[Rfam]
Nucleotides: 115
Stems, first nucleotide, its partner, number of pairs: 001115008013042001016041003022032003029083001043078004048074002052068004087103006
Number, partner (000 for none) and nucleotide at each position: 001115c002114u003113c004112u005111u006110a007109u008108c009000c010000c011000g012000a013042g014000c015000u016041g017040g018039c019000g020000g021000a022032g023031g024030g025000a026000c027000a028000g029083g030024c031023c032022c033000u034000g035000u036000g037000a038000a039018g040017c041016c042013c043078g044077g045076c046075a047000a048074c049073c050000a051000u052068c053067c054066c055065c056000g057000u058000a059000a060000u061000a062000u063000a064000a065055g066054g067053g068052g069000c070000a071000a072000a073049g074048g075046u076045g077044c078043u079000a080000a081000c082000c083029u084000g085000g086000a087103a088102a089101g090100a091099c092098g093000g094000a095000u096000a097000u098092c099091g100090u101089c102088u103087u104000g105000g106000a107000a108008g109007a110006u111005a112004a113003g114002a115001g
Rfam assigns this 115-nucleotide RNA from Alteribacillus bidgolensis to the family "SAM riboswitch aptamer (S box leader)". About the family: The SAM riboswitch is found upstream of a number of genes which code for proteins involved in methionine or cysteine biosynthesis in Gram-positive bacteria. The SAM riboswitch acts at the level of transcription termination control. The predicted structure consists of a complex stem-loop region followed by a single stem loop terminator region.